[Rfam]
RNA sequence: GCCGCGUCUGAGGGGUGCUCCUUGCGAGCUGAGAUGGGACCCGGCGCCUCGCGCCGACGACCCGAACCCUUCGAACCUGAUCCGGAUAAUGCCGGCGAAGGGACGGGACACGUCUUCCUG
Numbered sequence: 001g002c003c004g005c006g007u008c009u010g011a012g013g014g015g016u017g018c019u020c021c022u023u024g025c026g027a028g029c030u031g032a033g034a035u036g037g038g039a040c041c042c043g044g045c046g047c048c049u050c051g052c053g054c055c056g057a058c059g060a061c062c063c064g065a066a067c068c069c070u071u072c073g074a075a076c077c078u079g080a081u082c083c084g085g086a087u088a089a090u091g092c093c094g095g096c097g098a099a100g101g102g103a104c105g106g107g108a109c110a111c112g113u114c115u116u117c118c119u120g
Base pairs, nucleotide, nucleotide: 007107008106009105010104011070012069013068014067016064017029018028019027020026036063037062038061040059076101077100078099082095083094084093085092
Dot-bracket structure: ......((((((((.(((((.....))))......(((.(..................).))))..)))).....(((...((((......))))...)))..)))).............

The family of this 120-nucleotide RNA sequence from Methylobrevis albus is "TPP riboswitch aptamer (THI element)". It scores 68 bits against the family's covariance model. The base pairs follow the family's consensus structure, which is taken from published work.